[Rfam]
RNA: Selenocysteine transfer RNA
Organism: Chlorella variabilis
RNA sequence: GCCGGAAUGACCCCAGGGGGUCCUGGGCGCGGACUUCAAAUCCGUGGAGGCUCAACGGCCUAGAGGUUCAACUCCUCCUUACCGGC
Numbered sequence: 001g002c003c004g005g006a007a008u009g010a011c012c013c014c015a016g017g018g019g020g021u022c023c024u025g026g027g028c029g030c031g032g033a034c035u036u037c038a039a040a041u042c043c044g045u046g047g048a049g050g051c052u053c054a055a056c057g058g059c060c061u062a063g064a065g066g067u068u069c070a071a072c073u074c075c076u077c078c079u080u081a082c083c084g085g086c
Base pairs, nucleotide, nucleotide: 001086002085003084004083005082007080009078012027013026014025015024016023017022028046029045030044031043032042033041048061049060050059051058052057063077064076065075066074